The record is a 114-nucleotide RNA sequence from Clostridium ljungdahlii, which matches "FMN riboswitch aptamer (RFN element)" in Rfam. Rfam links the family to the GO term FMN binding.
RNA sequence: AAUAUCCUUCGGGGUUGGGUGAAAUUCCCUAUCGGCGGUACAGCCCGCAAGCCAUAUGGCAGAUUCGGUUAGAUUCCGAAGCCGACAGUAUAGUCUGGAUGAAAGAAGGUGGAU
Numbered sequence: 001a002a003u004a005u006c007c008u009u010c011g012g013g014g015u016u017g018g019g020u021g022a023a024a025u026u027c028c029c030u031a032u033c034g035g036c037g038g039u040a041c042a043g044c045c046c047g048c049a050a051g052c053c054a055u056a057u058g059g060c061a062g063a064u065u066c067g068g069u070u071a072g073a074u075u076c077c078g079a080a081g082c083c084g085a086c087a088g089u090a091u092a093g094u095c096u097g098g099a100u101g102a103a104a105g106a107a108g109g110u111g112g113a114u
Stems, first nucleotide, its partner, number of pairs: 003112001006109005017029003031094002033084002035048004043082002051060003064080005086097003
The RFN element is a highly conserved domain that is found frequently in the 5'-untranslated regions of prokaryotic mRNAs that encode for flavin mononucleotide (FMN) biosynthesis and transport proteins. The source organism's lineage runs through Bacteria, Bacillati, Bacillota, Clostridiaceae and Clostridium. A search with the family's covariance model found it, with a score of 113 bits.